[Rfam]
RNA sequence: CCUUCACUGAUGAGUUAACUACUUGACUUUCGUUCUUCUGAGCUUGCUGAAGCAACGUUUGUCGAUCUGAGGAGG
Dot-bracket structure: (((.(.................................................................).)))
Numbered sequence: 001c002c003u004u005c006a007c008u009g010a011u012g013a014g015u016u017a018a019c020u021a022c023u024u025g026a027c028u029u030u031c032g033u034u035c036u037u038c039u040g041a042g043c044u045u046g047c048u049g050a051a052g053c054a055a056c057g058u059u060u061g062u063c064g065a066u067c068u069g070a071g072g073a074g075g
Stems, first nucleotide, its partner, number of pairs: 001075003005071001